RNA sequence: UCGUUGUAGGUCUUGAUGUGAUGGCGGGGAGGUUUUAGUCGGUAGGCGCCAGACUGAACUUCGGUUUGGGACGGCGAAUCCGACACUACCCGGGGUGGUUCCCCGGGUGUCUUUUAAAGAUUUCCUCCUCGACGA
Numbered sequence: 001u002c003g004u005u006g007u008a009g010g011u012c013u014u015g016a017u018g019u020g021a022u023g024g025c026g027g028g029g030a031g032g033u034u035u036u037a038g039u040c041g042g043u044a045g046g047c048g049c050c051a052g053a054c055u056g057a058a059c060u061u062c063g064g065u066u067u068g069g070g071a072c073g074g075c076g077a078a079u080c081c082g083a084c085a086c087u088a089c090c091c092g093g094g095g096u097g098g099u100u101c102c103c104c105g106g107g108u109g110u111c112u113u114u115u116a117a118a119g120a121u122u123u124c125c126u127c128c129u130c131g132a133c134g135a
Stems, first nucleotide, its partner, number of pairs: 001135004025131008038084005047076004055068005086109001088108005
The family of this 135-nucleotide RNA sequence from Trachymyrmex cornetzi is "R2 RNA element". The base pairs follow the family's consensus structure, which is taken from published work. This family represents the 3' UTR region of the R2 retrotransposable element. This family is known to interact with the R2-encoded reverse transcriptase in a reaction known as target primed reverse transcription (TPRT). The family's RNA type in Rfam is cis-regulatory element. The family has 15 seed sequences and 3,698 matches in Rfam 15.1. The literature on the family includes a 2004 paper in RNA by Ruschak et al., "Secondary structure models of the 3' untranslated regions of diverse R2 RNAs". The organism belongs to Trachymyrmex, within Eukaryota.